[Rfam]
RNA sequence: ACAGGUCGCUGGACGGCCGCGGCUCAGCAGGGCGAAAGCCGCUGGGCUGAGGAACGUCCGGGCUCCGCAGAGCAGGGUGGUGGCCAACAGCCACCCGGGGUGACCCGCGGGAAAGUGCAACAGAGAGCAGACCGCCCGGACCGGGAGCGAUCCCGGGACGGGUAAGGGUGAAACGGUGGUGUAAGAGACCACCAGUGCCGCAGGUGACUGCGGCAGCUAUGUAAACCCCACCCGGAGCAAGAUCGGACAGACGGCGUUCGAGGGCUGCUCGCCCGAAGCCGUCGGGUGGAUCGCUCGAGGCCGCUGGUGACAGCGGUCCCAGACAGAUGGUCGUCGCGUGCACCGGGGUGACCGGGUGCACGAACAGAACCCGGCGUACAGGCGGCCUGUCCUC
Numbered sequence: 001a002c003a004g005g006u007c008g009c010u011g012g013a014c015g016g017c018c019g020c021g022g023c024u025c026a027g028c029a030g031g032g033c034g035a036a037a038g039c040c041g042c043u044g045g046g047c048u049g050a051g052g053a054a055c056g057u058c059c060g061g062g063c064u065c066c067g068c069a070g071a072g073c074a075g076g077g078u079g080g081u082g083g084c085c086a087a088c089a090g091c092c093a094c095c096c097g098g099g100g101u102g103a104c105c106c107g108c109g110g111g112a113a114a115g116u117g118c119a120a121c122a123g124a125g126a127g128c129a130g131a132c133c134g135c136c137c138g139g140a141c142c143g144g145g146a147g148c149g150a151u152c153c154c155g156g157g158a159c160g161g162g163u164a165a166g167g168g169u170g171a172a173a174c175g176g177u178g179g180u181g182u183a184a185g186a187g188a189c190c191a192c193c194a195g196u197g198c199c200g201c202a203g204g205u206g207a208c209u210g211c212g213g214c215a216g217c218u219a220u221g222u223a224a225a226c227c228c229c230a231c232c233c234g235g236a237g238c239a240a241g242a243u244c245g246g247a248c249a250g251a252c253g254g255c256g257u258u259c260g261a262g263g264g265c266u267g268c269u270c271g272c273c274c275g276a277a278g279c280c281g282u283c284g285g286g287u288g289g290a291u292c293g294c295u296c297g298a299g300g301c302c303g304c305u306g307g308u309g310a311c312a313g314c315g316g317u318c319c320c321a322g323a324c325a326g327a328u329g330g331u332c333g334u335c336g337c338g339u340g341c342a343c344c345g346g347g348g349u350g351a352c353c354g355g356g357u358g359c360a361c362g363a364a365c366a367g368a369a370c371c372c373g374g375c376g377u378a379c380a381g382g383c384g385g386c387c388u389g390u391c392c393u394c
Stems, first nucleotide, its partner, number of pairs: 001390010011379001012335007020049009054377003058374005063237004070270004075233005080094005095109001096107004110228002115226002117222003132167002134163005141156006175193006195217001196215008241292004250283006262274004299318008
Bacterial RNase P class A: a 394-nucleotide RNA from Brevibacterium jeotgali. Gene Ontology terms of the family: ribonuclease P activity, tRNA processing and dimeric ribonuclease P complex. The source organism's lineage runs through Bacteria, Bacillati, Actinomycetota, Actinomycetes and Brevibacterium. Rfam classes the family as a ribozyme.